[Rfam]
RNA sequence: AAAUAGCCCCCUAUGUUUUGAUUGUUUGGCAGUUUUGGACCCCCAGUUCAUUAGUGAGGUGCCACGUAUAUUAUUUAGGGGGUCACGUGGCACCUCAUUAAUGGACUGGGGGUCCAAAACUGCCAAAGAAUCAAAACAUAGGGGGCUGUUU
Dot-bracket structure: ((.(((((...((((((((((((.(((((((((((((((((((((...........((.((((((((.................)))))))).))...........))))))))))))))))))))).))))))))))))...))))).))
Numbered sequence: 001a002a003a004u005a006g007c008c009c010c011c012u013a014u015g016u017u018u019u020g021a022u023u024g025u026u027u028g029g030c031a032g033u034u035u036u037g038g039a040c041c042c043c044c045a046g047u048u049c050a051u052u053a054g055u056g057a058g059g060u061g062c063c064a065c066g067u068a069u070a071u072u073a074u075u076u077a078g079g080g081g082g083u084c085a086c087g088u089g090g091c092a093c094c095u096c097a098u099u100a101a102u103g104g105a106c107u108g109g110g111g112g113u114c115c116a117a118a119a120c121u122g123c124c125a126a127a128g129a130a131u132c133a134a135a136a137c138a139u140a141g142g143g144g145g146c147u148g149u150u151u
Stems, first nucleotide, its partner, number of pairs: 001151002004148005012140012025127021057095002060092008

Source information: Shown here is a 151-nucleotide RNA from Medicago truncatula, a member of the family "MIR2619 microRNA precursor family".